Rfam assigns this 110-nucleotide sequence from Cohaesibacter gelatinilyticus to the family "Alphaproteobacterial ar14". A reference for the family is del Val et al. (2012), "A survey of sRNA families in alpha-proteobacteria", RNA Biol. The pairing is the family consensus, mapped onto this sequence. It is annotated as a small RNA. The organism belongs to Cohaesibacter, within Bacteria. Its family is annotated with biological process involved in symbiotic interaction in the Gene Ontology.
[Rfam]
RNA sequence: GGAAUUCGGGCUUUAUCUCCUCCCAAAAGCCCGAUGGUUUCAAAACACCUCCUCCCAGUUUUGAAACAAGAAACGAAGCCUACCGGUUCCUCCCCCGGUGGGCUUUCGUU
Numbered sequence: 001g002g003a004a005u006u007c008g009g010g011c012u013u014u015a016u017c018u019c020c021u022c023c024c025a026a027a028a029g030c031c032c033g034a035u036g037g038u039u040u041c042a043a044a045a046c047a048c049c050u051c052c053u054c055c056c057a058g059u060u061u062u063g064a065a066a067c068a069a070g071a072a073a074c075g076a077a078g079c080c081u082a083c084c085g086g087u088u089c090c091u092c093c094c095c096c097g098g099u100g101g102g103c104u105u106u107c108g109u110u
Base pairs, nucleotide, nucleotide: 007033008032009031010030011029012028013027014026037067038066039065040064041063042062043061044060045059046058076105077104078103079102080101081100082099083098084097085096086095